[Rfam]
Nucleotides: 114
Stems, first nucleotide, its partner, number of pairs: 002113001004111001008107004013102004018097001020095002037077004049063003
Number, partner (000 for none) and nucleotide at each position: 001000u002113u003000g004111g005000g006000a007000u008107a009106u010105g011104g012000g013102g014101a015100c016099a017000u018097g019000u020095a021094c022000c023000c024000a025000a026000u027000g028000a029000c030000u031000u032000g033000g034000u035000c036000u037077g038076g039075c040074a041000u042000g043000u044000u045000g046000g047000u048000g049063g050062g051061u052000g053000c054000u055000c056000u057000u058000u059000g060000u061051g062050c063049u064000u065000u066000g067000g068000c069000a070000g071000g072000u073000g074040u075039g076038c077037u078000a079000a080000c081000u082000a083000u084000u085000g086000c087000u088000a089000u090000g091000c092000c093000a094021g095020u096000c097018c098000c099016u100015g101014u102013u103000a104011u105010u106009g107008u108000c109000a110000a111004c112000a113002a114000u